[Rfam]
RNA sequence: GUGCCUGUGGGAUGAACAUGUCCCAACAUUUACUCCAUUUAUUCACUUUGUCAGCUAAUAGCCAUACAUGUUUUAUGUUUAGCUGAUCAUUAAGAAUGGGAAAUUU
Numbered sequence: 001g002u003g004c005c006u007g008u009g010g011g012a013u014g015a016a017c018a019u020g021u022c023c024c025a026a027c028a029u030u031u032a033c034u035c036c037a038u039u040u041a042u043u044c045a046c047u048u049u050g051u052c053a054g055c056u057a058a059u060a061g062c063c064a065u066a067c068a069u070g071u072u073u074u075a076u077g078u079u080u081a082g083c084u085g086a087u088c089a090u091u092a093a094g095a096a097u098g099g100g101a102a103a104u105u106u
Stems, first nucleotide, its partner, number of pairs: 034100006050087008